[Rfam]
RNA sequence: ACCCUCCAGUUCCCUUUCCCAUUGGAUUUGAACCCUGGUCUCAGUGGUCGUAAAAGGAGGAAUAGUAGUCCUGAAGCUGUGCUCAUAGCGUCUGCUAUAUAUAGCAUGUGGGCUAGUUUAAAAAAAGG
Numbered sequence: 001a002c003c004c005u006c007c008a009g010u011u012c013c014c015u016u017u018c019c020c021a022u023u024g025g026a027u028u029u030g031a032a033c034c035c036u037g038g039u040c041u042c043a044g045u046g047g048u049c050g051u052a053a054a055a056g057g058a059g060g061a062a063u064a065g066u067a068g069u070c071c072u073g074a075a076g077c078u079g080u081g082c083u084c085a086u087a088g089c090g091u092c093u094g095c096u097a098u099a100u101a102u103a104g105c106a107u108g109u110g111g112g113c114u115a116g117u118u119u120a121a122a123a124a125a126a127g128g
Stems, first nucleotide, its partner, number of pairs: 003060005019047005025040004077116003081113004093106003